Rfam assigns this 207-nucleotide part of an RNA from Fusarium gaditjirri to the family "Ascomycota telomerase RNA". On this family, see Qi et al., Nucleic Acids Res 2013: "The common ancestral core of vertebrate and fungal telomerase RNAs". NCBI's taxonomy places the organism under Eukaryota, Ascomycota, saccharomyceta, Fusarium, Fusarium nisikadoi species complex.

[Rfam]
RNA sequence: UCCCCCACAGUCCUCCGGUCCUCGUUUCUCGCAAGGGAUCCUAUUGUAGGCACCCGCAUCAUUUGGUCACCCUUCCAUAUGCCGCUCUCGAGCCUGUAACAGGACCUCGUGAAUGCCGCAGCCGGAUUAUGGUGGGUAGCGCGUCCUGUAUAGGACGUACCAAGCGGGCGGGUGAACGAGGCUCGGAACUUAACCCUAAGAAGAUAU
Numbered sequence: 001u002c003c004c005c006c007a008c009a010g011u012c013c014u015c016c017g018g019u020c021c022u023c024g025u026u027u028c029u030c031g032c033a034a035g036g037g038a039u040c041c042u043a044u045u046g047u048a049g050g051c052a053c054c055c056g057c058a059u060c061a062u063u064u065g066g067u068c069a070c071c072c073u074u075c076c077a078u079a080u081g082c083c084g085c086u087c088u089c090g091a092g093c094c095u096g097u098a099a100c101a102g103g104a105c106c107u108c109g110u111g112a113a114u115g116c117c118g119c120a121g122c123c124g125g126a127u128u129a130u131g132g133u134g135g136g137u138a139g140c141g142c143g144u145c146c147u148g149u150a151u152a153g154g155a156c157g158u159a160c161c162a163a164g165c166g167g168g169c170g171g172g173u174g175a176a177c178g179a180g181g182c183u184c185g186g187a188a189c190u191u192a193a194c195c196c197u198a199a200g201a202a203g204a205u206a207u
Base pairs, nucleotide, nucleotide: 009190010189011188015186016185017184018183